[Rfam]
RNA: Rhodo-rpoB RNA
Organism: Phaeovulum vinaykumarii
RNA sequence: GGUUCGGGAGCCUUCCUUUGGGACGGGAGGCAUGAAUGGAACCGGCCCCUUCAUUCGCAAGCGGCGCGCACCGGGCCCCGACGGUUCGCAC
Numbered sequence: 001g002g003u004u005c006g007g008g009a010g011c012c013u014u015c016c017u018u019u020g021g022g023a024c025g026g027g028a029g030g031c032a033u034g035a036a037u038g039g040a041a042c043c044g045g046c047c048c049c050u051u052c053a054u055u056c057g058c059a060a061g062c063g064g065c066g067c068g069c070a071c072c073g074g075g076c077c078c079c080g081a082c083g084g085u086u087c088g089c090a091c
Stems, first nucleotide, its partner, number of pairs: 001043005010031007064091001066089003070085004